[Rfam]
RNA sequence: GUGAAGGAUGUAGGAGACGGUUUCUUAAAUGAAACGGCCGAAGGGACAAGUUUAAUCUUCCCCAAAGAUUAAAUGAAAUUCUCAGGUAAAAGGAUUACAGCCGGACG
Numbered sequence: 001g002u003g004a005a006g007g008a009u010g011u012a013g014g015a016g017a018c019g020g021u022u023u024c025u026u027a028a029a030u031g032a033a034a035c036g037g038c039c040g041a042a043g044g045g046a047c048a049a050g051u052u053u054a055a056u057c058u059u060c061c062c063c064a065a066a067g068a069u070u071a072a073a074u075g076a077a078a079u080u081c082u083c084a085g086g087u088a089a090a091a092g093g094a095u096u097a098c099a100g101c102c103g104g105a106c107g
Stems, first nucleotide, its partner, number of pairs: 006102002009099005020035004037087003040083002044081003050074010
Dot-bracket structure: .....((.(((((......((((........)))).(((((..(((...((((((((((.....))))))))))....))))).))).......))))).)).....

The record is a 107-nucleotide RNA from Asaccharospora irregularis, which matches "Glycine riboswitch aptamer" in Rfam.
NCBI's taxonomy places the organism under Bacteria, Peptostreptococcales, Peptostreptococcaceae, Asaccharospora, Asaccharospora irregularis.